Shown here is a 90-nucleotide RNA from Sphenodon punctatus, a member of the family "Small nucleolar RNA MBII-202".
Rfam classes the family as a C/D-box small nucleolar RNA.
NCBI's taxonomy places the organism under Eukaryota, Bilateria, Vertebrata, Gnathostomata, Sphenodon.
RNA sequence: UGAUGACACUUUCUCCGGAAUCUCUGCAGUCUCUGUGAUGACUCUGCUCGAACCCUUUUCCAGCUGAUGACUGUGGUGGCCUCCCUCAGC
Numbered sequence: 001u002g003a004u005g006a007c008a009c010u011u012u013c014u015c016c017g018g019a020a021u022c023u024c025u026g027c028a029g030u031c032u033c034u035g036u037g038a039u040g041a042c043u044c045u046g047c048u049c050g051a052a053c054c055c056u057u058u059u060c061c062a063g064c065u066g067a068u069g070a071c072u073g074u075g076g077u078g079g080c081c082u083c084c085c086u087c088a089g090c
Base pairs, nucleotide, nucleotide: 002090004088005087006086